[Rfam]
RNA: Small nucleolar RNA SNORD66
Organism: Eurystomus gularis
RNA sequence: CUCCUGUGAUGAACUCUGCUUUAUGACGUCGUGUCUGGGCCACUGAUGUUCCGUGAUGGUACUGAGGUUCUGAGGGG
Numbered sequence: 001c002u003c004c005u006g007u008g009a010u011g012a013a014c015u016c017u018g019c020u021u022u023a024u025g026a027c028g029u030c031g032u033g034u035c036u037g038g039g040c041c042a043c044u045g046a047u048g049u050u051c052c053g054u055g056a057u058g059g060u061a062c063u064g065a066g067g068u069u070c071u072g073a074g075g076g077g
Base pairs, nucleotide, nucleotide: 001077002076003075004074